[Rfam]
RNA sequence: UGCCGCAGAGCGCUCACAUCCCUCUCCGUGCCGUAUUAAUCCAUAUAAGAAAGUCUCUUUUAAUGAGGAGUGAUACAGUUAUGAACUCUCCAGAGCCAUAAUUAGAGCAAACUAAUUGAAGUUGUGUUUUGACACACUUUCCAAAUUCACGGGUACUGCAUGACAUAUUCCCAGCACCGCUGCCGCACAGCCACGGCGACAGCGCGAUCGUUAGGCUGGUAACGCUGAUCUGCAUUCGCAUCACGCCAGCAGCGCGCCCCCAAACACUGCUGCUCGCUUACUCUGAAAGUUUCCACUGAAAGAUAUUAACAGUAAUUAUUAGUACUUUAGUGGAAUCUCUGAUGUUAAGGA
Numbered sequence: 001u002g003c004c005g006c007a008g009a010g011c012g013c014u015c016a017c018a019u020c021c022c023u024c025u026c027c028g029u030g031c032c033g034u035a036u037u038a039a040u041c042c043a044u045a046u047a048a049g050a051a052a053g054u055c056u057c058u059u060u061u062a063a064u065g066a067g068g069a070g071u072g073a074u075a076c077a078g079u080u081a082u083g084a085a086c087u088c089u090c091c092a093g094a095g096c097c098a099u100a101a102u103u104a105g106a107g108c109a110a111a112c113u114a115a116u117u118g119a120a121g122u123u124g125u126g127u128u129u130u131g132a133c134a135c136a137c138u139u140u141c142c143a144a145a146u147u148c149a150c151g152g153g154u155a156c157u158g159c160a161u162g163a164c165a166u167a168u169u170c171c172c173a174g175c176a177c178c179g180c181u182g183c184c185g186c187a188c189a190g191c192c193a194c195g196g197c198g199a200c201a202g203c204g205c206g207a208u209c210g211u212u213a214g215g216c217u218g219g220u221a222a223c224g225c226u227g228a229u230c231u232g233c234a235u236u237c238g239c240a241u242c243a244c245g246c247c248a249g250c251a252g253c254g255c256g257c258c259c260c261c262a263a264a265c266a267c268u269g270c271u272g273c274u275c276g277c278u279u280a281c282u283c284u285g286a287a288a289g290u291u292u293c294c295a296c297u298g299a300a301a302g303a304u305a306u307u308a309a310c311a312g313u314a315a316u317u318a319u320u321a322g323u324a325c326u327u328u329a330g331u332g333g334a335a336u337c338u339c340u341g342a343u344g345u346u347a348a349g350g351a
Stems, first nucleotide, its partner, number of pairs: 034344005040334005047327003055070006075319001077317006086095003105275005118140004123136005151259003156252001181198005202246003215233002218230003
Source information
ncRNA Repressor of NFAT (nuclear factor of activated T cells): a 351-nucleotide RNA sequence from Thinocorus orbignyianus. A search with the family's covariance model found it, with a score of 311 bits. The family's RNA type in Rfam is non-coding RNA gene. NCBI's taxonomy places the organism under Eukaryota, Archelosauria, Saurischia, Coelurosauria, Thinocorus. On this family, see Willingham et al., Science 2005: "A strategy for probing the function of noncoding RNAs finds a repressor of NFAT". Rfam 15.1 lists 522 matches to the family in 519 species.